[Rfam]
RNA: mir-9193 microRNA precursor family
RNA sequence: CAGGGGGAGAGGGGUUUCCCUCAGCCCAGACUGUGAGAGGGCACAGGCCAGGCUGAGAGACCCCACAGGUGCACG
Numbered sequence: 001c002a003g004g005g006g007g008a009g010a011g012g013g014g015u016u017u018c019c020c021u022c023a024g025c026c027c028a029g030a031c032u033g034u035g036a037g038a039g040g041g042c043a044c045a046g047g048c049c050a051g052g053c054u055g056a057g058a059g060a061c062c063c064c065a066c067a068g069g070u071g072c073a074c075g
Base pairs, nucleotide, nucleotide: 003072005070009066011064012063013062014061015060018059020057021056022055023054024053025052026051029048031046032045033044034043035042